[Rfam]
RNA sequence: ACAGGAGGACGACCUCCCCCGUAUCGGGUAUUCAUUCCAGGACGACCUGG
Numbered sequence: 001a002c003a004g005g006a007g008g009a010c011g012a013c014c015u016c017c018c019c020c021g022u023a024u025c026g027g028g029u030a031u032u033c034a035u036u037c038c039a040g041g042a043c044g045a046c047c048u049g050g
Base pairs, nucleotide, nucleotide: 004017005016006015007014008013037050038049039048040047041046
Guanidine-II riboswitch aptamer (mini-ykkC): a 50-nucleotide sequence from Thiopseudomonas denitrificans. Pairs were carried over by alignment from the consensus structure, which is taken from published work. For this family Rfam cites "Identification of 22 candidate structured RNAs in bacteria using the CMfinder comparative genomics pipeline" (Weinberg et al., Nucleic Acids Res, 2007).